mir-8/mir-141/mir-200 microRNA precursor family: a 68-nucleotide RNA from Bombycilla garrulus. It scores 69 bits against the family's covariance model. Pairs were carried over by alignment from the consensus structure, which was predicted with RNAalifold. On this family, see Lagos-Quintana et al., Science 2001: "Identification of novel genes coding for small expressed RNAs". The source organism's lineage runs through Eukaryota, Teleostomi, Amniota, Archosauria and Bombycilla. Gene Ontology terms of the family: miRNA-mediated post-transcriptional gene silencing and RISC complex.

RNA sequence: GUGGGCAUCUUACUAGACAGUGCUGGAUUUUGUGCCUGACUCUAACACUGUCUGGUAACGAUGUUUAA
Numbered sequence: 001g002u003g004g005g006c007a008u009c010u011u012a013c014u015a016g017a018c019a020g021u022g023c024u025g026g027a028u029u030u031u032g033u034g035c036c037u038g039a040c041u042c043u044a045a046c047a048c049u050g051u052c053u054g055g056u057a058a059c060g061a062u063g064u065u066u067a068a
Base pairs, nucleotide, nucleotide: 002067003066004065005064006063007062008061009060010058011057012056013055014054015053016052017051018050019049020048021047022046024044025043026042027041